[Rfam]
RNA: mir-67 microRNA precursor family
RNA sequence: CCCGUCGUUUACUCACUCAACUUGGAUGUGAUGUGCUGCCUCUCCAUCACAACCUCCUUGAGUGAGUGAAUGCUUGG
Numbered sequence: 001c002c003c004g005u006c007g008u009u010u011a012c013u014c015a016c017u018c019a020a021c022u023u024g025g026a027u028g029u030g031a032u033g034u035g036c037u038g039c040c041u042c043u044c045c046a047u048c049a050c051a052a053c054c055u056c057c058u059u060g061a062g063u064g065a066g067u068g069a070a071u072g073c074u075u076g077g
Base pairs, nucleotide, nucleotide: 008069009068012066013065014064015063016062017061018060019059020058024054025053027051028050029049030048031047032046033045